[Rfam]
RNA: RNase MRP
Organism: Tribolium castaneum
RNA sequence: UGGUUCCACCAAGCCUAACUCACGGGGUAACUUACAGAGUUCUCGUAACUCACACACCCUGUGGAAGGUCCCCGGAUCCGUGGUAGAAAGUACCGCUGGGUUUUUCAGUCAGAUACGAGCCACGCGGUCAAAGGAUAGGGAUAUUCUGUACGACUCGCAGGCUUGUAUUGUUGGUCAUAGCACAGGCAAUGUUAGGAUCACUUCGGUGAUAACAAAACGGGGCCCAUUCUGGAGGAACC
Numbered sequence: 001u002g003g004u005u006c007c008a009c010c011a012a013g014c015c016u017a018a019c020u021c022a023c024g025g026g027g028u029a030a031c032u033u034a035c036a037g038a039g040u041u042c043u044c045g046u047a048a049c050u051c052a053c054a055c056a057c058c059c060u061g062u063g064g065a066a067g068g069u070c071c072c073c074g075g076a077u078c079c080g081u082g083g084u085a086g087a088a089a090g091u092a093c094c095g096c097u098g099g100g101u102u103u104u105u106c107a108g109u110c111a112g113a114u115a116c117g118a119g120c121c122a123c124g125c126g127g128u129c130a131a132a133g134g135a136u137a138g139g140g141a142u143a144u145u146c147u148g149u150a151c152g153a154c155u156c157g158c159a160g161g162c163u164u165g166u167a168u169u170g171u172u173g174g175u176c177a178u179a180g181c182a183c184a185g186g187c188a189a190u191g192u193u194a195g196g197a198u199c200a201c202u203u204c205g206g207u208g209a210u211a212a213c214a215a216a217a218c219g220g221g222g223c224c225c226a227u228u229c230u231g232g233a234g235g236a237a238c239c
Stems, first nucleotide, its partner, number of pairs: 002239006009232003014196006022062007037051005067224002070222004082094004095110001097108001099106002112169009124158003127154003137147004198209004